Clostridiales-1 RNA: a 169-nucleotide RNA from Blautia faecicola.
[Rfam]
RNA sequence: AGAUACCAGGUUUCCAAAGCGAAACGCUUUUCGUGUUUGCAUGAGAAAGCUUUUUGCCUUGGAAACCGCCAGACAUGAGAAAGUAGCGAUUUACGAAAUAAAUCAGCGGAUUUCGAAUGGCUGGAGGAUUGUGGGAGCAGCUUUGCUGCGGAACAAUCCGUAAGUAUCA
Number, nucleotide and partner (000 for none) at each position: 001a000002g168003a167004u166005a165006c164007c000008a000009g000010g066011u065012u064013u063014c000015c000016a060017a059018a000019g057020c056021g055022a054023a053024a052025c000026g050027c049028u048029u047030u046031u044032c043033g042034u041035g040036u000037u000038u000039g000040c035041a034042u033043g032044a031045g000046a030047a029048a028049g027050c026051u000052u024053u023054u022055u021056g020057c019058c000059u017060u016061g000062g000063a013064a012065a011066c010067c000068g000069c124070c123071a122072g121073a000074c119075a118076u117077g000078a000079g114080a113081a112082a111083g000084u000085a000086g107087c106088g104089a103090u102091u101092u100093a000094c000095g000096a000097a000098a000099u000100a092101a091102a090103u089104c088105a000106g087107c086108g000109g000110a000111u082112u081113u080114c079115g000116a000117a076118u075119g074120g000121c072122u071123g070124g069125a000126g159127g158128a157129u156130u155131g154132u153133g000134g000135g000136a000137g149138c148139a147140g146141c000142u000143u000144u000145g000146c140147u139148g138149c137150g000151g000152a000153a132154c131155a130156a129157u128158c127159c126160g000161u000162a000163a000164g006165u005166a004167u003168c002169a000

It is annotated as a small RNA. Lineage of the source: Bacteria > Bacillati > Clostridia > Lachnospirales > Blautia. Pairs were carried over by alignment from the consensus structure, which is taken from published work.